The family of this 34-nucleotide RNA is "S4-Flavobacteria ribosomal protein leader". The literature on the family includes a 2020 paper in BMC Microbiol by Eckert and Weinberg, "Discovery of 20 novel ribosomal leader candidates in bacteria and archaea". It is one of the family's seed sequences. The family's RNA type in Rfam is cis-regulatory leader.
RNA sequence: UGUUGUCGGAGGAGUUAGACCUUAAUCCACAACA
Numbered sequence: 001u002g003u004u005g006u007c008g009g010a011g012g013a014g015u016u017a018g019a020c021c022u023u024a025a026u027c028c029a030c031a032a033c034a
Stems, first nucleotide, its partner, number of pairs: 001034006008028001009023004